[Rfam]
The family of this 299-nucleotide sequence from Daucus carota is "Plant signal recognition particle RNA". NCBI's taxonomy places the organism under Eukaryota, Streptophytina, eudicotyledons, Apiineae, Daucus carota. The family's consensus secondary structure is taken from published work. A search with the family's covariance model found it, with a score of 200 bits. Rfam classes the family as a non-coding RNA gene. Its family is annotated with signal recognition particle, endoplasmic reticulum targeting and SRP-dependent cotranslational protein targeting to membrane, signal sequence recognition in the Gene Ontology.
RNA sequence: GCUGGGCUUGGUAACGCGAGCCUGUAACUCAAGUGAGGGCUGGAUGGUUGGAUGUUUGGCCUGGUCUUGACGGUUGGGCCAUCUGGGUGCUUCUCUGGCCUGCCCUAUCCAAGUGAGAAGUGAGGUUAGGGUCCUCUAGCGAAGGCUUGGGGGCAAUGGCUCCUAAAGUUCAGGGCACUGCGCGAGGCUGGCUCCACAGAGCAGCGAACACCUGUCUCUUCUCACAGUGGAAGGAUAACAAGCCAGUUCUUGGGUGGUUCAUCAAAUGCCUAAUGGACCUCUCAACUAGACAACCAUCU
Numbered sequence: 001g002c003u004g005g006g007c008u009u010g011g012u013a014a015c016g017c018g019a020g021c022c023u024g025u026a027a028c029u030c031a032a033g034u035g036a037g038g039g040c041u042g043g044a045u046g047g048u049u050g051g052a053u054g055u056u057u058g059g060c061c062u063g064g065u066c067u068u069g070a071c072g073g074u075u076g077g078g079c080c081a082u083c084u085g086g087g088u089g090c091u092u093c094u095c096u097g098g099c100c101u102g103c104c105c106u107a108u109c110c111a112a113g114u115g116a117g118a119a120g121u122g123a124g125g126u127u128a129g130g131g132u133c134c135u136c137u138a139g140c141g142a143a144g145g146c147u148u149g150g151g152g153g154c155a156a157u158g159g160c161u162c163c164u165a166a167a168g169u170u171c172a173g174g175g176c177a178c179u180g181c182g183c184g185a186g187g188c189u190g191g192c193u194c195c196a197c198a199g200a201g202c203a204g205c206g207a208a209c210a211c212c213u214g215u216c217u218c219u220u221c222u223c224a225c226a227g228u229g230g231a232a233g234g235a236u237a238a239c240a241a242g243c244c245a246g247u248u249c250u251u252g253g254g255u256g257g258u259u260c261a262u263c264a265a266a267u268g269c270c271u272a273a274u275g276g277a278c279c280u281c282u283c284a285a286c287u288a289g290a291c292a293a294c295c296a297u298c299u
Stems, first nucleotide, its partner, number of pairs: 001040003004023007028037003042299009053288002056285003059281001063278001066276002072270003076260008085251003089248001095246005101240002104234002108231004113225008124161005131154006138147003163168001171214004179208001181206003188199003